Shown here is a 98-nucleotide RNA from Deinobacterium chartae, a member of the family "TPP riboswitch aptamer (THI element)". It scores 66 bits against the family's covariance model. Rfam links the family to the GO term thiamine pyrophosphate binding. Rfam 15.1 lists 16,130 matches to the family in 8,693 species.
RNA sequence: UCGCGUCGCCGGGGGUGCCCUUGUGCACAAGGGCUGAGAGAUACCCCAGGAACCUGAUCCAGUUCGUACUGGCGUAGGGAGAGCGGCCCUGUGGUCGC
Numbered sequence: 001u002c003g004c005g006u007c008g009c010c011g012g013g014g015g016u017g018c019c020c021u022u023g024u025g026c027a028c029a030a031g032g033g034c035u036g037a038g039a040g041a042u043a044c045c046c047c048a049g050g051a052a053c054c055u056g057a058u059c060c061a062g063u064u065c066g067u068a069c070u071g072g073c074g075u076a077g078g079g080a081g082a083g084c085g086g087c088c089c090u091g092u093g094g095u096c097g098c
Base pairs, nucleotide, nucleotide: 006086007085008084009083011047012046013045014044016041017034018033019032020031021030053078054077055076056075059072060071061070062069